Shown here is a 115-nucleotide RNA sequence from Rhadinovirus saimiriinegamma2, a member of the family "Herpesvirus saimiri U RNA1/RNA2". Rfam 15.1 lists 5 matches to the family in 4 species. The base pairs follow the family's consensus structure, which is taken from published work. Rfam's curators put it in the seed alignment.
RNA sequence: ACACUACAUAUUUAUUGUUUAUUUAUACCUGAUAAUGCUGCUUUAAUCACACACGAGGUAUCGCUUCUACUAAUUUUUGAAAGCGCUGGGUGUACAUAUUUAAAAACCAGCGCUG
Numbered sequence: 001a002c003a004c005u006a007c008a009u010a011u012u013u014a015u016u017g018u019u020u021a022u023u024u025a026u027a028c029c030u031g032a033u034a035a036u037g038c039u040g041c042u043u044u045a046a047u048c049a050c051a052c053a054c055g056a057g058g059u060a061u062c063g064c065u066u067c068u069a070c071u072a073a074u075u076u077u078u079g080a081a082a083g084c085g086c087u088g089g090g091u092g093u094a095c096a097u098a099u100u101u102a103a104a105a106a107c108c109a110g111c112g113c114u115g
Base pairs, nucleotide, nucleotide: 028063030060031059040052082114083113084112085111086110087109088108089107

The literature on the family includes a 2005 paper in Curr Biol by Cook et al., "Small nuclear RNAs encoded by Herpesvirus saimiri upregulate the expression of genes linked to T cell activation in virally transformed T cells".